[Rfam]
RNA sequence: CUUGGGGGUGGGAGGGUCCCUCAGCUCAGAUUGCGAGAGGGUGCAGACCAGGCCAAGGGACCCCACUGGUGCACG
Numbered sequence: 001c002u003u004g005g006g007g008g009u010g011g012g013a014g015g016g017u018c019c020c021u022c023a024g025c026u027c028a029g030a031u032u033g034c035g036a037g038a039g040g041g042u043g044c045a046g047a048c049c050a051g052g053c054c055a056a057g058g059g060a061c062c063c064c065a066c067u068g069g070u071g072c073a074c075g
Stems, first nucleotide, its partner, number of pairs: 003073002006070001009068003014063008024053003029048001031046005
RNA: mir-9193 microRNA precursor family